[Rfam]
RNA sequence: GGAACCCCGCUGAGAAAGAUUUAGCAAAUCACUCAUAGCGAGUCUUGGACAUCAUCGGGUAACCUAUGAUGUUAAGCGUAGACAGCAAGUUAGUAGGCCGAAAGCGAAAGUUGAAGGGAUUGAGCCUCGAAAUCCCCAUUGGGAAGGUUAAUACUGUGAACCGAGUAGAAAACAACAUCAAUAUAUUCGCUAAGCGAGAAUAUAUUGGCUUCCCCGGGGUCAGUGACCU
Numbered sequence: 001g002g003a004a005c006c007c008c009g010c011u012g013a014g015a016a017a018g019a020u021u022u023a024g025c026a027a028a029u030c031a032c033u034c035a036u037a038g039c040g041a042g043u044c045u046u047g048g049a050c051a052u053c054a055u056c057g058g059g060u061a062a063c064c065u066a067u068g069a070u071g072u073u074a075a076g077c078g079u080a081g082a083c084a085g086c087a088a089g090u091u092a093g094u095a096g097g098c099c100g101a102a103a104g105c106g107a108a109a110g111u112u113g114a115a116g117g118g119a120u121u122g123a124g125c126c127u128c129g130a131a132a133u134c135c136c137c138a139u140u141g142g143g144a145a146g147g148u149u150a151a152u153a154c155u156g157u158g159a160a161c162c163g164a165g166u167a168g169a170a171a172a173c174a175a176c177a178u179c180a181a182u183a184u185a186u187u188c189g190c191u192a193a194g195c196g197a198g199a200a201u202a203u204a205u206u207g208g209c210u211u212c213c214c215c216g217g218g219g220u221c222a223g224u225g226a227c228c229u
Stems, first nucleotide, its partner, number of pairs: 012034003018030004022197001024195002036092004042083004046078002048073008057064002121223001122221001124220006141214006147173003152167004178208011
RNA: Group II catalytic intron D1-D4-6